[Rfam]
RNA sequence: GCGCAGUGCGGAGGGCCACCUCGGUGUCACUUAAGGCAGAAGCCCGCUGCUGCUUUGAGCGCAGCGCGGCUGUGCGCUGCAUCCCGUUAUCGAGCACACCGGGCGAAAGUCCCCGGGCGACGAGGCAGAGAGUGCCAACCCGAAAGGGCAGGUCCCUCAUGUGCCGUUUUUACGGCCGUGAGGCAGCUCGCCAUAGCAACAGUUAUGUGGCCAGUGGAGGCACAAUCCACCAACACAACGGGGCUUACUCCCGCACUGACG
Numbered sequence: 001g002c003g004c005a006g007u008g009c010g011g012a013g014g015g016c017c018a019c020c021u022c023g024g025u026g027u028c029a030c031u032u033a034a035g036g037c038a039g040a041a042g043c044c045c046g047c048u049g050c051u052g053c054u055u056u057g058a059g060c061g062c063a064g065c066g067c068g069g070c071u072g073u074g075c076g077c078u079g080c081a082u083c084c085c086g087u088u089a090u091c092g093a094g095c096a097c098a099c100c101g102g103g104c105g106a107a108a109g110u111c112c113c114c115g116g117g118c119g120a121c122g123a124g125g126c127a128g129a130g131a132g133u134g135c136c137a138a139c140c141c142g143a144a145a146g147g148g149c150a151g152g153u154c155c156c157u158c159a160u161g162u163g164c165c166g167u168u169u170u171u172a173c174g175g176c177c178g179u180g181a182g183g184c185a186g187c188u189c190g191c192c193a194u195a196g197c198a199a200c201a202g203u204u205a206u207g208u209g210g211c212c213a214g215u216g217g218a219g220g221c222a223c224a225a226u227c228c229a230c231c232a233a234c235a236c237a238a239c240g241g242g243g244c245u246u247a248c249u250c251c252c253g254c255a256c257u258g259a260c261g
Base pairs, nucleotide, nucleotide: 002261003260004258005257006256007255008254009253010252011251014212015211016210017209018208019207021102022101023100024099025098026097027096036080037079038078039077107246108245109244111243112242113241114240124136125135126134127133139148140147141146151184157181158180159179160178161177164175165174166173167172214230215229216228217227218226
Rfam assigns this 261-nucleotide sequence from Tetrabaena socialis to the family "RNase MRP". By type it is a ribozyme. A search with the family's covariance model found it, with a score of 110 bits. Rfam's curators write: RNase MRP is an enzymatically active ribonucleoprotein with two distinct roles in eukaryotes. In mitochondria it plays a direct role in the initiation of mitochondrial DNA replication. The base pairs follow the family's consensus structure, which is taken from published work.